[Rfam]
RNA sequence: CACGUCAUCUUACCAGGCAGGAUUCGAUAGCAAAUGAAUCUAAUACUGUCGGGUAAAGAUGAUGUC
Numbered sequence: 001c002a003c004g005u006c007a008u009c010u011u012a013c014c015a016g017g018c019a020g021g022a023u024u025c026g027a028u029a030g031c032a033a034a035u036g037a038a039u040c041u042a043a044u045a046c047u048g049u050c051g052g053g054u055a056a057a058g059a060u061g062a063u064g065u066c
Stems, first nucleotide, its partner, number of pairs: 002065008010056005016050005022044003026040002
The family of this 66-nucleotide RNA sequence from Trichuris suis is "mir-8/mir-141/mir-200 microRNA precursor family".
Clan: mir-8 microRNA precursor clan.